The record is a 220-nucleotide RNA from Pseudomonas mangiferae, which matches "sRNA regulator of biofilms A" in Rfam. It scores 121 bits against the family's covariance model. From the family's description: Important for biofilm formation and pathogenicity. Bacterial strain with deleted SrbA had reduced biofilm mass. As the ability to form biofilms can contribute to the ability a pathogen to thrive within the host, the C. elegans hosts infected with the srbA deleted strain displayed significantly lower mortality rate than the wild-type strain. However, the deletion of srbA had no effect on growth or antibiotic resistance in P. aeruginosa. It is annotated as a small RNA.
[Rfam]
RNA sequence: AUCAGGGGUUCCGAAAGGGGCCUCCGGAACGCUCCGGCUCACCGCCGCGACGGUCCGUGUUGCGACGCCCACAAGGCCGUUCGACGAGAUGGCGACUGGAACGAAAGUUGUCCUGAGGGACGGGGAAGCGUUUGUAGAUCAGCCGGUUUCGGCUCACGUCGGAUCGUACCCAGCGGCAGCCACGAGCCAGGGUCGAGUCGACGGGCCACCCGACGCGUCA
Numbered sequence: 001a002u003c004a005g006g007g008g009u010u011c012c013g014a015a016a017g018g019g020g021c022c023u024c025c026g027g028a029a030c031g032c033u034c035c036g037g038c039u040c041a042c043c044g045c046c047g048c049g050a051c052g053g054u055c056c057g058u059g060u061u062g063c064g065a066c067g068c069c070c071a072c073a074a075g076g077c078c079g080u081u082c083g084a085c086g087a088g089a090u091g092g093c094g095a096c097u098g099g100a101a102c103g104a105a106a107g108u109u110g111u112c113c114u115g116a117g118g119g120a121c122g123g124g125g126a127a128g129c130g131u132u133u134g135u136a137g138a139u140c141a142g143c144c145g146g147u148u149u150c151g152g153c154u155c156a157c158g159u160c161g162g163a164u165c166g167u168a169c170c171c172a173g174c175g176g177c178a179g180c181c182a183c184g185a186g187c188c189a190g191g192g193u194c195g196a197g198u199c200g201a202c203g204g205g206c207c208a209c210c211c212g213a214c215g216c217g218u219c220a
Stems, first nucleotide, its partner, number of pairs: 005024008028054001030052002033050002037046001039044001056151002059148001061146001067077003079135002083132004113125002159163001168193004175188003201218003205214001